[Rfam]
Shown here is a 123-nucleotide sequence from Brucella intermedia, a member of the family "Alphaproteobacterial ar14". Gene Ontology term of the family: biological process involved in symbiotic interaction. It is annotated as a small RNA. The source organism's lineage runs through Bacteria, Pseudomonadati, Alphaproteobacteria, Brucella and Brucella intermedia. Smr14C2 was renamed NfeR1 (Nodule Formation Efficiency RNA) highly expressed in salt stress and during the symbiotic interaction on legume roots.
RNA sequence: AAUAUCCGUCCUGGCUUGCUCCUCCUCCCAAAAGCCGGGGCCGAGCGCGAUACUCCUCUUCCCAAUCGCGCUUACUGAUCAAGCCCGCAACGCUCACCUCCUCCCGAGCCUUGCGGGCUUUUC
Numbered sequence: 001a002a003u004a005u006c007c008g009u010c011c012u013g014g015c016u017u018g019c020u021c022c023u024c025c026u027c028c029c030a031a032a033a034g035c036c037g038g039g040g041c042c043g044a045g046c047g048c049g050a051u052a053c054u055c056c057u058c059u060u061c062c063c064a065a066u067c068g069c070g071c072u073u074a075c076u077g078a079u080c081a082a083g084c085c086c087g088c089a090a091c092g093c094u095c096a097c098c099u100c101c102u103c104c105c106g107a108g109c110c111u112u113g114c115g116g117g118c119u120u121u122u123c
Base pairs, nucleotide, nucleotide: 008041009040011038012037013036014035015034016033017032043073044072045071046070047069048068049067050066051065083118084117085116086115087114088113089112090111092109093108094107095106